[Rfam]
RNA sequence: CUUCAUACACAUUGGCCAUGUCCAAAGAGUUAGGCAAAUUGGAAAUACCAAAUGAACAGCACUAGGGGUGAAGGGCGAAAGAAUGCUAGCCAUGCAUCAAGUAGCACAAACCCUGAAGAUGUGCGAGAGCCCCAACCUGAGUAGAUGAGGGAAGCCGUAGCAGUGAGUACACUGUAGCCAACAAGGUUCCUACUGGUAAGGAUCACCCACUAGGUAUGACCUGUAGUUGGGGGCGUGCCCAGGCUUACCUUAAUGUAACUGGGGGUCGGUUACAUGAAUCCACUAGGGAUAUCUACACAGCCUGAUAGGGUAUCGGCGCCGAUGGGGAAAGGCUCUAUAAAAUGGCGUAGCACAUAGCAC
Number, nucleotide and partner (000 for none) at each position: 001c000002u000003u000004c000005a000006u000007a000008c000009a000010c000011a000012u000013u000014g000015g000016c000017c000018a000019u000020g000021u000022c000023c000024a000025a000026a000027g000028a000029g000030u000031u000032a000033g000034g000035c000036a000037a000038a000039u000040u000041g000042g000043a000044a000045a000046u000047a000048c000049c000050a000051a000052a000053u000054g000055a000056a000057c000058a000059g124060c123061a122062c121063u000064a000065g000066g000067g000068g111069u110070g000071a000072a000073g000074g107075g105076c104077g000078a000079a000080a000081g098082a097083a000084u096085g095086c094087u000088a000089g000090c000091c000092a000093u000094g086095c085096a084097u082098c081099a000100a000101g000102u000103a000104g076105c075106a000107c074108a000109a000110a069111c068112c000113c000114u000115g000116a000117a000118g000119a000120u000121g062122u061123g060124c059125g000126a336127g335128a334129g333130c332131c331132c000133c000134a000135a000136c327137c326138u299139g298140a000141g296142u295143a294144g293145a292146u291147g000148a250149g249150g248151g000152a246153a245154g244155c243156c242157g000158u000159a000160g175161c174162a173163g172164u171165g170166a000167g000168u000169a000170c165171a164172c163173u162174g161175u160176a000177g000178c230179c229180a228181a227182c226183a000184a222185g221186g220187u219188u218189c214190c213191u212192a211193c000194u209195g208196g207197u000198a000199a000200g000201g000202a000203u000204c000205a000206c000207c196208c195209a194210c000211u192212a191213g190214g189215u000216a000217u000218g188219a187220c186221c185222u184223g000224u000225a000226g182227u181228u180229g179230g178231g240232g239233g238234c000235g000236u000237g000238c233239c232240c231241a000242g156243g155244c154245u153246u152247a000248c150249c149250u148251u000252a000253a275254u274255g273256u272257a271258a270259c269260u268261g267262g266263g000264g000265g000266u262267c261268g260269g259270u258271u257272a256273c255274a254275u253276g000277a000278a290279u289280c288281c287282a000283c000284u000285a000286g000287g281288g280289a279290u278291a146292u145293c144294u143295a142296c141297a000298c139299a138300g311301c310302c309303u308304g000305a000306u000307a000308g303309g302310g301311u300312a000313u000314c350315g000316g348317c347318g346319c345320c344321g343322a000323u000324g000325g000326g137327g136328a000329a000330a000331g131332g130333c129334u128335c127336u126337a000338u000339a000340a000341a000342a000343u321344g320345g319346c318347g317348u316349a000350g314351c000352a000353c000354a000355u000356a000357g000358c000359a000360c000

The family of this 360-nucleotide RNA is "Pestivirus internal ribosome entry site (IRES) including 5'UTR SLI". The base pairs follow the family's consensus structure. Gene Ontology term of the family: ribosome binding. About the family: This family represents the internal ribosome entry site (IRES) of the the pestiviruses. The pestivirus IRES allows cap and end-independent translation of mRNA in the host cell. The IRES achieves this by mediating the internal initiation of translation by recruiting a ribosomal 43S pre-initiation complex directly to the initiation codon and eliminates the requirement for eIF4F. The classical swine virus UTR described in appears to be longer at the 5' end than other pestivirus UTRs. This family represents the conserved core.